[Rfam]
RNA sequence: CUAAACUCGUGCCCGUCUUUGGGGAGUAGCCUUCCUUCCGCAAUGGGAGGAGGACGCGUCAACAUACUCGGCGGGUGCCGUGGCGCGUUCGACCGGUCCGGUUUGGCGAGACCAUGGGUGCAUCUCGUCGUUCACGGUCGGACGGCGCGGGACAGCACCCUGGUUCGCAGACGUCCGACC
Numbered sequence: 001c002u003a004a005a006c007u008c009g010u011g012c013c014c015g016u017c018u019u020u021g022g023g024g025a026g027u028a029g030c031c032u033u034c035c036u037u038c039c040g041c042a043a044u045g046g047g048a049g050g051a052g053g054a055c056g057c058g059u060c061a062a063c064a065u066a067c068u069c070g071g072c073g074g075g076u077g078c079c080g081u082g083g084c085g086c087g088u089u090c091g092a093c094c095g096g097u098c099c100g101g102u103u104u105g106g107c108g109a110g111a112c113c114a115u116g117g118g119u120g121c122a123u124c125u126c127g128u129c130g131u132u133c134a135c136g137g138u139c140g141g142a143c144g145g146c147g148c149g150g151g152a153c154a155g156c157a158c159c160c161u162g163g164u165u166c167g168c169a170g171a172c173g174u175c176c177g178a179c180c
Stems, first nucleotide, its partner, number of pairs: 034050003052090010069080004096180001
Source information:
A member of the RNA family "Manganese Mn2+ riboswitch aptamer (yybP-ykoY)" from Burkholderia sp. Leaf177, 180 nucleotides long. This RNA was originally discovered in E. coli during a large scale screen and was named SraF. The family was later found to exist upstream of related families of protein genes in many bacteria, including the the yybP and ykoK genes in B. subtilis. Rfam links the family to the GO term manganese ion binding.